Shown here is a 153-nucleotide RNA from Rhodobacteraceae bacterium EhC02, a member of the family "Ruegeria cis2 sRNA".
The literature on the family includes a 2016 paper in Front Microbiol by Rivers et al., "Experimental Identification of Small Non-Coding RNAs in the Model Marine Bacterium Ruegeria pomeroyi DSS-3".
It is annotated as a small RNA.
The base pairs follow the family's consensus structure, which was predicted with RNAfold.
RNA sequence: AGAGCUGUAGCGCGGUGUGUAGUUGAUGAAGACAAAGCCGCGCGCCUGGUCGAUGGCGUGAAACAGCGGAUUCCAGUCGAACAAGGCCAGCAUGAACGCGGGAAGCGUGUUGGCCACGAACAUCUUGCCCGAGGCGAUCAUGUUCGCGCGCUG
Numbered sequence: 001a002g003a004g005c006u007g008u009a010g011c012g013c014g015g016u017g018u019g020u021a022g023u024u025g026a027u028g029a030a031g032a033c034a035a036a037g038c039c040g041c042g043c044g045c046c047u048g049g050u051c052g053a054u055g056g057c058g059u060g061a062a063a064c065a066g067c068g069g070a071u072u073c074c075a076g077u078c079g080a081a082c083a084a085g086g087c088c089a090g091c092a093u094g095a096a097c098g099c100g101g102g103a104a105g106c107g108u109g110u111u112g113g114c115c116a117c118g119a120a121c122a123u124c125u126u127g128c129c130c131g132a133g134g135c136g137a138u139c140a141u142g143u144u145c146g147c148g149c150g151c152u153g
Base pairs, nucleotide, nucleotide: 004033006032008030013025014024015023037057038056039055040054041052042051064153065152066151067150068149071081072080073079086147087146089144090143091142092141093140094139099133101130102129104126105125107123108122110119111118112117